[Rfam]
RNA sequence: AAUGCAGAUGCCGAAAAGCUAUAAUAGAGUAGGCA
Number, nucleotide and partner (000 for none) at each position: 001a000002a000003u000004g019005c018006a000007g000008a000009u000010g034011c033012c032013g000014a000015a000016a000017a000018g005019c004020u000021a000022u000023a000024a000025u000026a000027g000028a000029g000030u000031a000032g012033g011034c010035a000

This 35-nucleotide RNA belongs to the Rfam family "DUF805b RNA". Rfam's curators put it in the seed alignment. The family is grouped with related families in Rfam's "DUF805 clan". Rfam classes the family as a cis-regulatory element.